[Rfam]
RNA sequence: GGGGAUAUUCAGUUAUCCCCCCUCUUUAAAGGGGGCUGGUAACGCGUCGAUACAAGAGAUAUUGCUCUAUAAACAGUAACGUCGUUAUCUGUCAUGCCACCGUGGGUUAGCGGUCAUGGUUAACCAAAUAGGGCAGGUUAUUGCAAAGAGACAUACGCGUUUAUACCCAAAAUAAUCCGUAGCCAACACAUAAGCAACUUGAAGUAUGAAGGGUAUAUGUCUGAUGGAAAAUCGGCCCUGGUGAGUAGGGUAAUGGCGCCGGAGGGGCUCCGGCGCUUUUU
Numbered sequence: 001g002g003g004g005a006u007a008u009u010c011a012g013u014u015a016u017c018c019c020c021c022c023u024c025u026u027u028a029a030a031g032g033g034g035g036c037u038g039g040u041a042a043c044g045c046g047u048c049g050a051u052a053c054a055a056g057a058g059a060u061a062u063u064g065c066u067c068u069a070u071a072a073a074c075a076g077u078a079a080c081g082u083c084g085u086u087a088u089c090u091g092u093c094a095u096g097c098c099a100c101c102g103u104g105g106g107u108u109a110g111c112g113g114u115c116a117u118g119g120u121u122a123a124c125c126a127a128a129u130a131g132g133g134c135a136g137g138u139u140a141u142u143g144c145a146a147a148g149a150g151a152c153a154u155a156c157g158c159g160u161u162u163a164u165a166c167c168c169a170a171a172a173u174a175a176u177c178c179g180u181a182g183c184c185a186a187c188a189c190a191u192a193a194g195c196a197a198c199u200u201g202a203a204g205u206a207u208g209a210a211g212g213g214u215a216u217a218u219g220u221c222u223g224a225u226g227g228a229a230a231a232u233c234g235g236c237c238c239u240g241g242u243g244a245g246u247a248g249g250g251u252a253a254u255g256g257c258g259c260c261g262g263a264g265g266g267g268c269u270c271c272g273g274c275g276c277u278u279u280u281u
Stems, first nucleotide, its partner, number of pairs: 001020007023059005034048003037044002060255011073092004077087004098243005105125007131238003136233004141229002144226002149222005162217007179187002189208004195201001256276009
Shown here is a 281-nucleotide RNA sequence from Salmonella enterica, a member of the family "isrH Hfq binding RNA". The base pairs follow the family's consensus structure, which was predicted with RNAalifold. NCBI's taxonomy places the organism under Bacteria, Pseudomonadati, Pseudomonadota, Salmonella, Salmonella enterica subsp. enterica serovar Agona. The family's RNA type in Rfam is small RNA.